A member of the RNA family "Molybdenum/Tungsten riboswitch aptamer (Moco RNA motif)" from Alkalibaculum sporogenes, 120 nucleotides long. Taxonomically the source falls in Alkalibaculum (Bacteria, Bacillati, Bacillota, Eubacteriaceae).
[Rfam]
RNA sequence: GAUUACAUAUUACUCCGAAUCUGUAAAAUCUACGGGUAAACCUAUGAAUAUACAGACGUUAGGGUUAUGUUGGAAACGACAUGGUCUCCCAUUGUGGAAAGGAGAGUUCGACUAUCUUUA
Numbered sequence: 001g002a003u004u005a006c007a008u009a010u011u012a013c014u015c016c017g018a019a020u021c022u023g024u025a026a027a028a029u030c031u032a033c034g035g036g037u038a039a040a041c042c043u044a045u046g047a048a049u050a051u052a053c054a055g056a057c058g059u060u061a062g063g064g065u066u067a068u069g070u071u072g073g074a075a076a077c078g079a080c081a082u083g084g085u086c087u088c089c090c091a092u093u094g095u096g097g098a099a100a101g102g103a104g105a106g107u108u109c110g111a112c113u114a115u116c117u118u119u120a
Base pairs, nucleotide, nucleotide: 003114011106013104014103015102016101020056021055022054023053024052025051027049029047030046034043035042036041062087063086064085065084066083067082068081069080070079071078072077088097089096
Dot-bracket structure: ..(.......(.((((...((((((.(.((...(((....)))..)).).)))))).....(((((((((((....)))))))))))((......))...)))).).......)......